RNA sequence: CCUCUCUCUCAUCCCCCCCCCCAGUCUGUCAUUACACUGACAGACUGGGGGGGGAUGAGAGAGAGGUGAGCGCUAUCGGAAGCAGAGAAAUCAAGGCGAAGGUCUUCCCUUCGCCUUGAUUUCUCUGCUUCCGUUCGC
Numbered sequence: 001c002c003u004c005u006c007u008c009u010c011a012u013c014c015c016c017c018c019c020c021c022c023a024g025u026c027u028g029u030c031a032u033u034a035c036a037c038u039g040a041c042a043g044a045c046u047g048g049g050g051g052g053g054g055a056u057g058a059g060a061g062a063g064a065g066g067u068g069a070g071c072g073c074u075a076u077c078g079g080a081a082g083c084a085g086a087g088a089a090a091u092c093a094a095g096g097c098g099a100a101g102g103u104c105u106u107c108c109c110u111u112c113g114c115c116u117u118g119a120u121u122u123c124u125c126u127g128c129u130u131c132c133g134u135u136c137g138c
Stems, first nucleotide, its partner, number of pairs: 003066004008059004017053006028045003070138003077133007092118007100110002102107001

The record is a 138-nucleotide RNA from Salvator merianae, which matches "Small nucleolar RNA SNORA14" in Rfam. From the family's description: ACA14 is a member of the H/ACA class of snoRNA that guide the sites of modification of uridines to pseudouridines. It scores 37 bits against the family's covariance model. It is annotated as an H/ACA-box small nucleolar RNA. The base pairs follow the family's consensus structure, which was predicted with RNAfold. NCBI's taxonomy places the organism under Eukaryota, Bilateria, Squamata, Bifurcata, Salvator.